[Rfam]
RNA sequence: GGCCGCCGCCACCGGGGUGGUCCCCGGGCCGGACUUCAGAUCCGGCGCGCCCCGAGUGGGGCGCGGGGUUCAAUUCCCCGCGGCGGCC
Dot-bracket structure: (((((((((..((((((....))))))((((((.......)))))).(((((......))))).((((.......)))))))))))))
The family of this 88-nucleotide sequence from Methanopyrus kandleri is "Selenocysteine transfer RNA". Pairs were carried over by alignment from the consensus structure, which is taken from published work. A search with the family's covariance model found it, with a score of 67 bits.